[Rfam]
RNA sequence: CCUUCGCUGAUGAGUACCCAUUUGACUUUCGUUCUUCUGAGCUUGCUGAAGCAACGCUUACAGAUCUGAGGAGG
Numbered sequence: 001c002c003u004u005c006g007c008u009g010a011u012g013a014g015u016a017c018c019c020a021u022u023u024g025a026c027u028u029u030c031g032u033u034c035u036u037c038u039g040a041g042c043u044u045g046c047u048g049a050a051g052c053a054a055c056g057c058u059u060a061c062a063g064a065u066c067u068g069a070g071g072a073g074g
Base pairs, nucleotide, nucleotide: 001074002073003072005070
RNA: Small nucleolar RNA SNORD59
Organism: Nipponia nippon